[Rfam]
RNA sequence: CGACCGCGGGACAGCGUGAGUGGGUCAGGUCCAAUCUCGGCCCAGGAAAGUCCCCGGGCCAUUUCUUGCAGAGAUGCAGUCUCGGAAACGAGUCCCCUUCACGGGCCAGAUGAACGACCAGUUGGUUGGGUUGAGACAAGUGUGGAGCCUUGAAUUCUUCAUCUGGCUCUGGACGGGCUUUGGCUGAUUUCACAGUAAUUCACGCGGUCCUUUGGGCAACUGAACGGGGCUUACGAUCCUGCGGUC
Numbered sequence: 001c002g003a004c005c006g007c008g009g010g011a012c013a014g015c016g017u018g019a020g021u022g023g024g025u026c027a028g029g030u031c032c033a034a035u036c037u038c039g040g041c042c043c044a045g046g047a048a049a050g051u052c053c054c055c056g057g058g059c060c061a062u063u064u065c066u067u068g069c070a071g072a073g074a075u076g077c078a079g080u081c082u083c084g085g086a087a088a089c090g091a092g093u094c095c096c097c098u099u100c101a102c103g104g105g106c107c108a109g110a111u112g113a114a115c116g117a118c119c120a121g122u123u124g125g126u127u128g129g130g131u132u133g134a135g136a137c138a139a140g141u142g143u144g145g146a147g148c149c150u151u152g153a154a155u156u157c158u159u160c161a162u163c164u165g166g167c168u169c170u171g172g173a174c175g176g177g178c179u180u181u182g183g184c185u186g187a188u189u190u191c192a193c194a195g196u197a198a199u200u201c202a203c204g205c206g207g208u209c210c211u212u213u214g215g216g217c218a219a220c221u222g223a224a225c226g227g228g229g230c231u232u233a234c235g236a237u238c239c240u241g242c243g244g245u246c
Stems, first nucleotide, its partner, number of pairs: 002246010014205006022043005048232003052229004067078004079094001081092004096177003108170003118166004128157004140150001142148002207217004
The record is a 246-nucleotide sequence from Cuscuta australis, which matches "RNase MRP" in Rfam. Its Rfam clan is "RNaseP clan". The match comes from Rfam's covariance-model search (75 bits).